[Rfam]
Nucleotides: 238
Stems, first nucleotide, its partner, number of pairs: 007102002015097004026086006038074003049071006105134004109129002136150003190204005209235004220231004
Number, partner (000 for none) and nucleotide at each position: 001000g002000a003000a004000g005000u006000g007102g008101c009000g010000u011000u012000g013000a014000u015097g016096a017095a018094g019000a020000a021000g022000a023000g024000u025000a026086a027085u028084u029083a030082c031081a032000g033000g034000u035000g036000a037000a038074c039073u040072c041000u042000a043000a044000a045000g046000a047000g048000a049071g050070c051069u052068g053067a054066u055000g056000g057000c058000u059000g060000c061000u062000g063000u064000g065000a066054a067053u068052c069051a070050g071049c072040g073039a074038g075000u076000a077000u078000c079000c080000u081031u082030g083029u084028g085027a086026u087000g088000a089000a090000u091000g092000g093000g094018c095017u096016u097015c098000g099000g100000a101008g102007c103000u104000c105134c106133a107132a108131a109129c110128c111000g112000a113000a114000a115000c116000a117000g118000u119000a120000u121000c122000g123000g124000a125000g126000u127000a128110g129109g130000c131108u132107u133106u134105g135000g136150c137149g138148g139000a140000a141000u142000g143000g144000u145000u146000u147000c148138u149137c150136g151000u152000u153000a154000u155000g156000g157000a158000a159000a160000c161000u162000u163000a164000g165000a166000a167000g168000a169000u170000a171000a172000u173000a174000a175000u176000c177000u178000u179000c180000u181000u182000u183000u184000a185000g186000a187000g188000u189000g190204a191203g192202c193201u194200g195000c196000a197000c198000g199000u200194c201193a202192g203191c204190u205000a206000a207000u208000a209235a210234a211233g212232g213000u214000g215000g216000u217000a218000c219000c220231a221230c222229g223228g224000u225000c226000c227000c228223u229222c230221g231220u232212c233211c234210u235209u236000u237000u238000a

This 238-nucleotide sequence from Oceanobacillus oncorhynchi belongs to the Rfam family "T-box leader". Uncharged tRNA acts as the effector for transcription antitermination of genes in the T-box leader family. The source organism's lineage runs through Bacteria, Bacillota, Bacilli, Caryophanales and Oceanobacillus. Rfam classes the family as a cis-regulatory leader. Its family is annotated with tRNA binding in the Gene Ontology.